RNA sequence: AGCUCAAUGAUUACAAGCCUUCACAGGCAAUAUACGCUAUUCUCAUUUGGUAAAUUACCAACAGGAUGAUAACAUAAAAUGUAUAUGAGAGCU
Numbered sequence: 001a002g003c004u005c006a007a008u009g010a011u012u013a014c015a016a017g018c019c020u021u022c023a024c025a026g027g028c029a030a031u032a033u034a035c036g037c038u039a040u041u042c043u044c045a046u047u048u049g050g051u052a053a054a055u056u057a058c059c060a061a062c063a064g065g066a067u068g069a070u071a072a073c074a075u076a077a078a079a080u081g082u083a084u085a086u087g088a089g090a091g092c093u
Stems, first nucleotide, its partner, number of pairs: 001093005

Record summary
Rfam assigns this 93-nucleotide RNA sequence from Papaver nudicaule to the family "Small nucleolar RNA U54". Taxonomically the source falls in Papaver (Eukaryota, Streptophytina, Euphyllophyta, Spermatophyta). The literature on the family includes a 2003 paper in Nucleic Acids Res by Chen et al., "The high diversity of snoRNAs in plants: identification and comparative study of 120 snoRNA genes from Oryza sativa". The base pairs follow the family's consensus structure, which was predicted with PFOLD. Clan: U54 clan. Rfam classes the family as a C/D-box small nucleolar RNA. Rfam describes the family as follows. U54 is a C/D box small nucleolar RNA, which acts as a methylation guide for 18S ribosomal RNA in plants. A search with the family's covariance model found it, with a score of 46 bits.